The family of this 107-nucleotide RNA from Jeongeupia sacculi is "Glycine riboswitch aptamer". The match comes from Rfam's covariance-model search (57 bits). Taxonomically the source falls in Jeongeupia (Bacteria, Pseudomonadota, Betaproteobacteria, Neisseriales).
[Rfam]
RNA sequence: UCAAGGCCAAUUGGAGAGAGACCGGUAGAGCGGUCCACCGAAGGGGCAAUGCACGGAUAGCCGAUAUCCCGUGCCAAACUCUCAGGUAAAAGGACAAGGGGAGAGGC
Dot-bracket structure: ......((..(((......((((........)))).(((((..(((....((((((............))))))....))))).))).......)))..))......
Numbered sequence: 001u002c003a004a005g006g007c008c009a010a011u012u013g014g015a016g017a018g019a020g021a022c023c024g025g026u027a028g029a030g031c032g033g034u035c036c037a038c039c040g041a042a043g044g045g046g047c048a049a050u051g052c053a054c055g056g057a058u059a060g061c062c063g064a065u066a067u068c069c070c071g072u073g074c075c076a077a078a079c080u081c082u083c084a085g086g087u088a089a090a091a092g093g094a095c096a097a098g099g100g101g102a103g104a105g106g107c
Stems, first nucleotide, its partner, number of pairs: 007101002011097003020035004037087003040083002044081003051074006